[Rfam]
RNA sequence: AGUCCAAUUCCAGAGGCCAUAACAGAAGUGGCCACAUUGUGGCAUCUGUCAGAUUUUCAUGGAUCUGUGAAUUCUGCU
Dot-bracket structure: ............[[.[[[..(.((((((((.......)))]]].]]...(((((((....)))))))....))))).)
RNA: Mammalian CPEB3 ribozyme